[Rfam]
RNA sequence: ACACCUUGUCCUUCGCCCCUCGGCGUCGGGCAGUUUCCCUCCCAGCUACCAGAAAUGGCCUGCGCGGGAGAUGACAGCGCGGUUUUUGAGGAUGUAUUUUGUCUGCGCGCGACCUGCCCUCCUUCGCUGCUCUCGGUAGCUCGGUGGAGAGGAAUCAAAAACUAGUCCUUGUU
Numbered sequence: 001a002c003a004c005c006u007u008g009u010c011c012u013u014c015g016c017c018c019c020u021c022g023g024c025g026u027c028g029g030g031c032a033g034u035u036u037c038c039c040u041c042c043c044a045g046c047u048a049c050c051a052g053a054a055a056u057g058g059c060c061u062g063c064g065c066g067g068g069a070g071a072u073g074a075c076a077g078c079g080c081g082g083u084u085u086u087u088g089a090g091g092a093u094g095u096a097u098u099u100u101g102u103c104u105g106c107g108c109g110c111g112a113c114c115u116g117c118c119c120u121c122c123u124u125c126g127c128u129g130c131u132c133u134c135g136g137u138a139g140c141u142c143g144g145u146g147g148a149g150a151g152g153a154a155u156c157a158a159a160a161a162c163u164a165g166u167c168c169u170u171g172u173u
Base pairs, nucleotide, nucleotide: 006033007032008031010030011029012028015024016023017022038073039070040069041068042067043066045063046062049058050057051056091167092166093165094162095161097160098159099158100157101156117152118151119149120148121147122146126145127144128143129142132136
The family of this 173-nucleotide part of an RNA from Cytospora chrysosperma is "Ascomycota telomerase RNA". Lineage of the source: Eukaryota > Dikarya > leotiomyceta > Cytosporaceae > Cytospora. Clan: Telomerase clan.